Source information:
RAGATH-18 RNA: a 66-nucleotide RNA. The family's RNA type in Rfam is small RNA. Rfam's curators put it in the seed alignment.
RNA sequence: CUUGUGGACUAUCAUAUCAACCAUAGUAGAGUACUUGUGUCGAGGUGGGAUAGGAUGAAGCAAGAA
Numbered sequence: 001c002u003u004g005u006g007g008a009c010u011a012u013c014a015u016a017u018c019a020a021c022c023a024u025a026g027u028a029g030a031g032u033a034c035u036u037g038u039g040u041c042g043a044g045g046u047g048g049g050a051u052a053g054g055a056u057g058a059a060g061c062a063a064g065a066a
Base pairs, nucleotide, nucleotide: 001064002063003062004061005060009053010052011051012050013049021048022047023046029041030040